Notes: The record is a 75-nucleotide sequence from Pseudoleptotrichia goodfellowii, which matches "Fluoride riboswitch aptamer (crcB RNA motif)" in Rfam. The match comes from Rfam's covariance-model search (44 bits). NCBI's taxonomy places the organism under Bacteria, Fusobacteriati, Fusobacteriia, Pseudoleptotrichia, Pseudoleptotrichia goodfellowii. The literature on the family includes a 2017 paper in Nat Chem Biol by Zhao et al., "An excited state underlies gene regulation of a transcriptional riboswitch".
[Rfam]
RNA sequence: UUAUUUCAUGGAAAUGAUGUCUCCCGAGGCAAGUGCCUAAACCGCUUUAUUUGAGCUGAUGACUUCUGCAUAUUU
Numbered sequence: 001u002u003a004u005u006u007c008a009u010g011g012a013a014a015u016g017a018u019g020u021c022u023c024c025c026g027a028g029g030c031a032a033g034u035g036c037c038u039a040a041a042c043c044g045c046u047u048u049a050u051u052u053g054a055g056c057u058g059a060u061g062a063c064u065u066c067u068g069c070a071u072a073u074u075u
Stems, first nucleotide, its partner, number of pairs: 010025002013022001016066002019063003044056004